[Rfam]
RNA sequence: CCCGCCACUAUGCCUGUCUCUCUGAGUGACUGUGUAUAAUCCAGUGGAGGCUCAGAUUGACCCGGCUUUAGGAAACAGGGCUGCCCAAACUAAUGGACAAUUCUGUGCCGAAAAGUCUGGAACACCC
Numbered sequence: 001c002c003c004g005c006c007a008c009u010a011u012g013c014c015u016g017u018c019u020c021u022c023u024g025a026g027u028g029a030c031u032g033u034g035u036a037u038a039a040u041c042c043a044g045u046g047g048a049g050g051c052u053c054a055g056a057u058u059g060a061c062c063c064g065g066c067u068u069u070a071g072g073a074a075a076c077a078g079g080g081c082u083g084c085c086c087a088a089a090c091u092a093a094u095g096g097a098c099a100a101u102u103c104u105g106u107g108c109c110g111a112a113a114a115g116u117c118u119g120g121a122a123c124a125c126c127c
Stems, first nucleotide, its partner, number of pairs: 005047005018034001020032001023028001062120004066115004071109002076105005085096002
Shown here is a 127-nucleotide RNA sequence from Echeneis naucrates, a member of the family "Small nucleolar RNA SNORA65". The organism belongs to Echeneis, within Eukaryota. U65 belongs to the H/ACA class of snoRNAs which are thought to guide the sites of modification of uridines to pseudouridines. Rfam links the family to the GO terms nucleolus and RNA processing. Rfam classes the family as an H/ACA-box small nucleolar RNA. It scores 94 bits against the family's covariance model. The family is grouped with related families in Rfam's "SNORA65 clan".